Shown here is a 46-nucleotide RNA from Perca flavescens, a member of the family "Histone 3' UTR stem-loop". NCBI's taxonomy places the organism under Eukaryota, Metazoa, Eurypterygia, Euacanthomorphacea, Perca. The literature on the family includes a 1995 paper in Nucleic Acids Res by Williams and Marzluff, "The sequence of the stem and flanking sequences at the 3' end of histone mRNA are critical determinants for the binding of the stem-loop binding protein". Pairs were carried over by alignment from the consensus structure, which is taken from published work. The mRNAs of metazoan histone genes lack a poly-A tail. 3' end processing occurs at a site between a highly conserved stem-loop (modelled by this family) and a purine rich region around 20 nts downstream (the histone downstream element, or HDE). The stem-loop is bound by a 31 kDa stem-loop binding protein (SLBP - also termed the histone hairpin binding protein, or HBP). Together with U7 snRNA binding of the HDE, SLBP binding nucleate s the formation of the processing complex. The histone 3' UTR stem-loop is also involved in nucleocytoplasmic transport of the mRNA, and in stability regulation and translation efficiency in the cytoplasm.
[Rfam]
RNA sequence: AAAAAGGCUCUUUUAAGAGCCAAACACAUUUCUGAUAAAGAGCGCU
Number, nucleotide and partner (000 for none) at each position: 001a000002a000003a000004a000005a000006g021007g020008c019009u018010c017011u016012u000013u000014u000015a000016a011017g010018a009019g008020c007021c006022a000023a000024a000025c000026a000027c000028a000029u000030u000031u000032c000033u000034g000035a000036u000037a000038a000039a000040g000041a000042g000043c000044g000045c000046u000